[Rfam]
RNA sequence: AUAUAAAUAUAAGCGCCAGACCAUUACAGUGGUUGACGAGGAUUGAGGUUAUCGAAAAUUCGGCGGAUGCCUCAAGGGUUUCACAAUCCAAGAAUACUCUAAAAAAUAGAAGUAAUUCUAUAACAACAGAGUAUUCACGUGAUAUC
Numbered sequence: 001a002u003a004u005a006a007a008u009a010u011a012a013g014c015g016c017c018a019g020a021c022c023a024u025u026a027c028a029g030u031g032g033u034u035g036a037c038g039a040g041g042a043u044u045g046a047g048g049u050u051a052u053c054g055a056a057a058a059u060u061c062g063g064c065g066g067a068u069g070c071c072u073c074a075a076g077g078g079u080u081u082c083a084c085a086a087u088c089c090a091a092g093a094a095u096a097c098u099c100u101a102a103a104a105a106a107u108a109g110a111a112g113u114a115a116u117u118c119u120a121u122a123a124c125a126a127c128a129g130a131g132u133a134u135u136c137a138c139g140u141g142a143u144a145u146c
Stems, first nucleotide, its partner, number of pairs: 020033005044074005052063004076089005092136007106121006
The record is a 146-nucleotide RNA sequence from Amphibacillus xylanus, which matches "glmS glucosamine-6-phosphate activated ribozyme aptamer" in Rfam. Rfam classes the family as a riboswitch.